[Rfam]
RNA sequence: UUUGGACCCGGUGUAAUUCCGGGUGGCUCUUCCGGCCGCCAAUCCGCCGGAUAACG
Dot-bracket structure: .....((((((.......))))))......((((((.........)))))).....

sul1 RNA: a 56-nucleotide RNA sequence from Beijerinckia indica. The family has 54 seed sequences and 519 matches in Rfam 15.1. The family's RNA type in Rfam is riboswitch.